[Rfam]
Nucleotides: 073
Stems, first nucleotide, its partner, number of pairs: 001072007010025004027043005049065005
Number, partner (000 for none) and nucleotide at each position: 001072g002071c003070u004069u005068c006067c007066a008000u009000a010025g011024c012023u013022c014000a015000g016000c017000a018000g019000g020000u021000a022013g023012a024011g025010c026000a027043c028042u029041u030040c031039c032000a033000u034000g035000g036000u037000a038000a039031g040030g041029a042028a043027g044000a045000g046000g047000u048000c049065a050064g051063c052062g053061g054000u055000u056000c057000g058000a059000g060000c061053c062052c063051g064050c065049u066007u067006g068005g069004a070003a071002g072001c073000u